Rfam assigns this 123-nucleotide RNA sequence from Chrysochloris asiatica to the family "Small nucleolar RNA SNORA61". Rfam describes the family as follows. ACA61 is a member of the H/ACA class of snoRNA that guide the sites of modification of uridines to pseudouridines. Lineage of the source: Eukaryota > Deuterostomia > Tetrapoda > Eutheria > Chrysochloris.
[Rfam]
RNA sequence: AUCCUCCAGUUCCCUUUCCCAUCGGAUCUAAUCACUGGUCUGGGUGGUCGUAAAAGGAGGAAAAGUAACAUUGAAACUGACCUCCUCAUGCUUUUGUAGUAUGCAGGCUGGUUUCAAACAAGA
Numbered sequence: 001a002u003c004c005u006c007c008a009g010u011u012c013c014c015u016u017u018c019c020c021a022u023c024g025g026a027u028c029u030a031a032u033c034a035c036u037g038g039u040c041u042g043g044g045u046g047g048u049c050g051u052a053a054a055a056g057g058a059g060g061a062a063a064a065g066u067a068a069c070a071u072u073g074a075a076a077c078u079g080a081c082c083u084c085c086u087c088a089u090g091c092u093u094u095u096g097u098a099g100u101a102u103g104c105a106g107g108c109u110g111g112u113u114u115c116a117a118a119c120a121a122g123a
Stems, first nucleotide, its partner, number of pairs: 003060005019047005025040004077111003081107003